Annotation:
A member of the RNA family "Small nucleolar RNA SNORD115" from Mesocricetus auratus, 79 nucleotides long. Gene Ontology terms of the family: nucleolus and RNA processing. For this family Rfam cites "Identification of brain-specific and imprinted small nucleolar RNA genes exhibiting an unusual genomic organization" (Cavaille et al., Proc Natl Acad Sci U S A, 2000).

RNA sequence: CGGUCUAUGAUGACAAACCAACGUCAUGAAGAGAGGUGAUGACAUAAAUAUCAUGCUGAGGUAGGGGCUGCUGAGACCC
Dot-bracket structure: .((((..((...........................................................))..)..))).
Lineage of the source: Eukaryota > Vertebrata > Tetrapoda > Muroidea > Mesocricetus.